[Rfam]
Nucleotides: 167
Stems, first nucleotide, its partner, number of pairs: 020052005027046002034042002084136003087132010
Number, partner (000 for none) and nucleotide at each position: 001000a002000g003000c004000u005000u006000u007000u008000u009000g010000c011000a012000g013000u014000g015000g016000c017000a018000g019000u020052a021051u022050u023049g024048c025000a026000g027046c028045c029000a030000a031000u032000g033000a034042g035041g036000u037000u038000u039000a040000u041035c042034c043000g044000a045028g046027g047000g048024g049023u050022g051021a052020u053000u054000a055000u056000u057000g058000c059000u060000c061000u062000u063000u064000g065000a066000a067000a068000a069000u070000u071000g072000a073000a074000a075000a076000a077000a078000a079000a080000a081000a082000a083000a084136a085135a086134a087132a088131a089130a090129a091128a092127a093126a094125a095124a096123a097000a098000a099000a100000g101000a102000c103000a104000c105000g106000a107000c108000a109000u110000u111000u112000g113000c114000a115000u116000a117000a118000a119000u120000u121000c122000u123096u124095u125094u126093u127092u128091u129090u130089u131088u132087u133000u134086u135085u136084u137000u138000u139000u140000u141000u142000u143000u144000g145000a146000a147000a148000a149000g150000g151000a152000a153000u154000c155000u156000c157000g158000c159000u160000c161000u162000g163000u164000u165000g166000c167000c

U4 spliceosomal RNA: a 167-nucleotide sequence from Nomascus leucogenys. Gene Ontology terms of the family: spliceosomal tri-snRNP complex assembly and U4 snRNP. The match comes from Rfam's covariance-model search (68 bits). Rfam describes the family as follows. U4 small nuclear RNA (U4 snRNA) is a component of the major U2-dependent spliceosome. The source organism's lineage runs through Eukaryota, Gnathostomata, Eutheria, Simiiformes and Nomascus.